[Rfam]
RNA: mir-1324 microRNA precursor family
RNA sequence: CCUGAAGAGGUGCAUGAAGCCUGGUCCUGCCCUCACUGGGAACCCCCUUCCCUCUGGGUACCAGACAGAAUUCUAUGCACUUUCCUGGAGG
Numbered sequence: 001c002c003u004g005a006a007g008a009g010g011u012g013c014a015u016g017a018a019g020c021c022u023g024g025u026c027c028u029g030c031c032c033u034c035a036c037u038g039g040g041a042a043c044c045c046c047c048u049u050c051c052c053u054c055u056g057g058g059u060a061c062c063a064g065a066c067a068g069a070a071u072u073c074u075a076u077g078c079a080c081u082u083u084c085c086u087g088g089a090g091g
Base pairs, nucleotide, nucleotide: 001091002090003089007083008082009081010080011079012078013077014076015075016073017072018071021064022063023062024061025060029059030058031057032056038052039051040050041049042048